[Rfam]
RNA: c-di-GMP-I riboswitch aptamer
Organism: Alkalibaculum sporogenes
RNA sequence: AUUUGAUAAAGGCAAACUUACUGAAAGGUAAGGACGCAAAGCACGAAAUCUAAAGUUAUUAUAACUAUGAUAGUUCGGCUGCCAAA
Numbered sequence: 001a002u003u004u005g006a007u008a009a010a011g012g013c014a015a016a017c018u019u020a021c022u023g024a025a026a027g028g029u030a031a032g033g034a035c036g037c038a039a040a041g042c043a044c045g046a047a048a049u050c051u052a053a054a055g056u057u058a059u060u061a062u063a064a065c066u067a068u069g070a071u072a073g074u075u076c077g078g079c080u081g082c083c084a085a086a
Stems, first nucleotide, its partner, number of pairs: 012037002017032006040080003045076003048071003055065004